[Rfam]
RNA sequence: ACAACAUACGGACUGUCUACCGAGCAAUAUCACCCGCUCGGUGGAAGAUCUUUCCCUUUGUCGU
Numbered sequence: 001a002c003a004a005c006a007u008a009c010g011g012a013c014u015g016u017c018u019a020c021c022g023a024g025c026a027a028u029a030u031c032a033c034c035c036g037c038u039c040g041g042u043g044g045a046a047g048a049u050c051u052u053u054c055c056c057u058u059u060g061u062c063g064u
Base pairs, nucleotide, nucleotide: 004061005060006059010055011054012053015049016045017044018043019042020041021040022039023038024037025036